[Rfam]
This 582-nucleotide RNA sequence belongs to the Rfam family "ROOL RNA". Rfam describes the family as follows. Firmicutes, Fusobacteria (1 example), Tenericutes (1 example). It is annotated as a small RNA. Rfam's curators put it in the seed alignment.
RNA sequence: GUCCAUCAGUUUCCGUUUGUGCAUCUCGGUUGAAGCAAGGUGAUACUUGUCCGAGAGCCUUCUAAGGGCGACCGAAAGUCCUAAAGUAGCUAACAAGAGUUGAGGUGAUAGCCUCUUUGAGAUGUUACCUGUGAGUUGUGAAACGUUGCAGGACUAGUAAAAGCUAGUGUGAAGAUGGAGGUGUGCCGCAAUAACAUAAUCAUAGAGCAUAAGUCUUUUCGUUGGAUAGAAGUAAGCACAUGCCGACAGGGUGAUGACUUUACCAGAUAAGGGCAAGCGUGAUAGCCUUGCCAAACUCUGGACUAAAUCAAACAAUCCAAUUUGCCGUGAACAGAAGAAAUUCUGGUAUAAGAAAAGCGCUUAGUAUGAGUAGCACAAGGCAAACAAACAGAUAAUUAUAUGAAAGCAUAUCAUAACAAAUCUGUAUCGUGUGAAAGUUGGUGGGUUUCGUUCCCAGCCCUAACAUUAAAAGCAAUAGGAGCUUAAGGAGUUGCUACUUUAAGUAGAGCCUAUUGGGUUAGUCGCUUAAUAAUGAGAGUGUUAUUGUGGUUGGAGAAAAACCGCACAAUUAAGGGUUAUUCG
Number, nucleotide and partner (000 for none) at each position: 001g000002u000003c000004c000005a000006u000007c000008a000009g577010u000011u575012u574013c573014c000015g000016u000017u000018u568019g000020u000021g000022c000023a000024u000025c055026u054027c053028g052029g051030u000031u000032g000033a000034a000035g000036c049037a048038a047039g046040g000041u000042g000043a000044u000045a000046c039047u038048u037049g036050u000051c029052c028053g027054a026055g025056a000057g182058c181059c180060u179061u178062c177063u000064a000065a000066g000067g000068g000069c000070g000071a000072c000073c000074g000075a000076a000077a000078g000079u000080c000081c000082u000083a000084a000085a126086g125087u124088a123089g000090c121091u000092a000093a118094c000095a000096a000097g000098a117099g116100u000101u000102g115103a114104g113105g112106u000107g000108a000109u000110a000111g000112c105113c104114u103115c102116u099117u098118u093119g000120a000121g090122a000123u088124g087125u086126u085127a000128c152129c151130u150131g149132u148133g146134a000135g144136u143137u142138g000139u000140g000141a000142a137143a136144c135145g000146u133147u000148g132149c131150a130151g129152g128153a000154c167155u166156a165157g164158u163159a000160a000161a000162a000163g158164c157165u156166a155167g154168u000169g000170u000171g000172a000173a000174g000175a000176u000177g062178g061179a060180g059181g058182u057183g000184u000185g000186c000187c000188g000189c000190a000191a545192u000193a000194a542195c000196a000197u000198a000199a000200u536201c000202a000203u000204a000205g000206a000207g526208c000209a000210u363211a362212a361213g360214u000215c357216u356217u355218u354219u353220c352221g321222u320223u319224g318225g317226a316227u000228a000229g000230a000231a000232g000233u000234a000235a000236g000237c000238a000239c000240a000241u253242g252243c251244c250245g000246a000247c000248a000249g000250g244251g243252u242253g241254a000255u000256g000257a000258c000259u000260u000261u000262a000263c301264c300265a299266g298267a297268u000269a000270a000271g000272g292273g291274c290275a289276a288277g287278c000279g000280u310281g309282a308283u307284a000285g000286c000287c277288u276289u275290g274291c273292c272293a000294a000295a000296c000297u267298c266299u265300g264301g263302a000303c000304u000305a000306a000307a283308u282309c281310a280311a000312a000313c000314a000315a000316u226317c225318c224319a223320a222321u221322u383323u382324g381325c380326c379327g000328u000329g000330a000331a000332c345333a344334g343335a342336a341337g000338a000339a000340a000341u336342u335343c334344u333345g332346g000347u000348a000349u000350a000351a000352g220353a219354a218355a217356a216357g215358c000359g000360c213361u212362u211363a210364g000365u000366a000367u437368g000369a000370g000371u000372a000373g432374c431375a430376c429377a000378a000379g326380g325381c324382a323383a322384a000385c000386a000387a000388a000389c000390a000391g000392a000393u000394a000395a000396u000397u000398a000399u000400a000401u000402g000403a000404a000405a000406g000407c000408a000409u000410a000411u000412c000413a000414u000415a000416a000417c000418a000419a000420a000421u507422c506423u505424g504425u000426a000427u000428c000429g376430u375431g374432u373433g000434a000435a000436a000437g367438u000439u000440g000441g458442u000443g000444g455445g454446u000447u000448u000449c000450g000451u000452u000453c000454c445455c444456a000457g000458c441459c000460c521461u520462a519463a000464c000465a000466u000467u000468a000469a000470a000471a000472g000473c516474a000475a514476u000477a000478g511479g510480a000481g509482c000483u502484u501485a500486a000487g498488g497489a000490g000491u000492u000493g000494c000495u000496a000497c488498u487499u000500u485501a484502a483503g000504u424505a423506g422507a421508g000509c481510c479511u478512a000513u000514u475515g000516g473517g000518u000519u462520a461521g460522u000523c000524g000525c000526u207527u000528a000529a000530u000531a000532a000533u000534g000535a000536g200537a000538g000539u000540g000541u000542u194543a000544u000545u191546g000547u000548g000549g000550u000551u000552g562553g561554a000555g000556a000557a000558a000559a000560a000561c553562c552563g000564c000565a000566c000567a000568a018569u000570u000571a000572a000573g013574g012575g011576u000577u009578a000579u000580u000581c000582g000